[Rfam]
RNA sequence: GGUCAUGCUUUUCCACAGCUUUCUUGAACUUUCUUUGAGUACUAACUCCCUCUUAAGGGAGAAAGAAAAAAAAAAAACAUAACAUUUGCUAGCGCACCAUGGAAGUUCAAGAAAGCUGUGGGAAAACAUGAUGG
Numbered sequence: 001g002g003u004c005a006u007g008c009u010u011u012u013c014c015a016c017a018g019c020u021u022u023c024u025u026g027a028a029c030u031u032u033c034u035u036u037g038a039g040u041a042c043u044a045a046c047u048c049c050c051u052c053u054u055a056a057g058g059g060a061g062a063a064a065g066a067a068a069a070a071a072a073a074a075a076a077a078c079a080u081a082a083c084a085u086u087u088g089c090u091a092g093c094g095c096a097c098c099a100u101g102g103a104a105g106u107u108c109a110a111g112a113a114a115g116c117u118g119u120g121g122g123a124a125a126a127c128a129u130g131a132u133g134g
Stems, first nucleotide, its partner, number of pairs: 003131005013121003017117006024110004029105005

Shown here is a 134-nucleotide sequence from Gossypium stocksii, a member of the family "MIR396 microRNA precursor family". The match comes from Rfam's covariance-model search (85 bits).